[Rfam]
RNA sequence: GAGACACAUUUAUGGGGCAAAACUUGUUUCAGUGGGGCUUUGGUGCUCACUGAGUCUACCUCUUGAAUGUGUCACU
Numbered sequence: 001g002a003g004a005c006a007c008a009u010u011u012a013u014g015g016g017g018c019a020a021a022a023c024u025u026g027u028u029u030c031a032g033u034g035g036g037g038c039u040u041u042g043g044u045g046c047u048c049a050c051u052g053a054g055u056c057u058a059c060c061u062c063u064u065g066a067a068u069g070u071g072u073c074a075c076u
Stems, first nucleotide, its partner, number of pairs: 001075001003073005009067004014062004019057001022055002029053008037044002
RNA: mir-9229 microRNA precursor family